[Rfam]
RNA sequence: GGAGCAGCAACGAUGUUACGCAGCAGGGCAGUCGCCCUAAAACAAAGUUGGGCGCACAAUAAGGCUCCUCGCAGA
Numbered sequence: 001g002g003a004g005c006a007g008c009a010a011c012g013a014u015g016u017u018a019c020g021c022a023g024c025a026g027g028g029c030a031g032u033c034g035c036c037c038u039a040a041a042a043c044a045a046a047g048u049u050g051g052g053c054g055c056a057c058a059a060u061a062a063g064g065c066u067c068c069u070c071g072c073a074g075a
Base pairs, nucleotide, nucleotide: 004072006017008015009014020055021054023053024052026037027036028035029034038050039049040048058069
Notes
putative aminoglycoside riboswitch / attI site: a 75-nucleotide sequence from Imbroritus primus. For this family Rfam cites "Riboswitch control of aminoglycoside antibiotic resistance" (Jia et al., Cell, 2013). Its family is annotated with aminoglycoside antibiotic metabolic process and regulation of gene expression in the Gene Ontology. Conserved RNA structure found upstream of the bacterial aminoglycosides antibiotic-resistant genes: aminoglycoside acetyl transferase (AAC) and aminoglycoside adenyl transferase (AAD). It has putative short open reading frame (ORF) that encode leader peptide upstream of the resistance gene. 75 nucleotide long sequence from the first ribosome binding site (SD1) up to the coding sequence was shown to have the regulatory role, and it was considered the minima functional RNA. Aminoglycosides bind to specific regions of AAC/AAD 5' leader and induce change in the RNA structure. The drug binding induces expression of the resistance protein. The organism belongs to Imbroritus, within Bacteria. The match comes from Rfam's covariance-model search (74 bits). By type it is a cis-regulatory element.